[Rfam]
RNA sequence: UCGCGAUCCGCCAACCGGUAGAGCCGGGCCGCGGAAGGUUGAUCAACCCAUCCACGCCCUGGAAACCGGGGUACAAGGUGAGCG
Numbered sequence: 001u002c003g004c005g006a007u008c009c010g011c012c013a014a015c016c017g018g019u020a021g022a023g024c025c026g027g028g029c030c031g032c033g034g035a036a037g038g039u040u041g042a043u044c045a046a047c048c049c050a051u052c053c054a055c056g057c058c059c060u061g062g063a064a065a066c067c068g069g070g071g072u073a074c075a076a077g078g079u080g081a082g083c084g
Base pairs, nucleotide, nucleotide: 002084003083004082007035008034009033010032011031016026017025018024019023037048038047039046040045049080050079051078052077056072057071058070059069060068061067062066
Rfam assigns this 84-nucleotide RNA from Ideonella sp. MAG2 to the family "SucA RNA motif". The base pairs follow the family's consensus structure, which is taken from published work. Its family is annotated with regulation of translation in the Gene Ontology.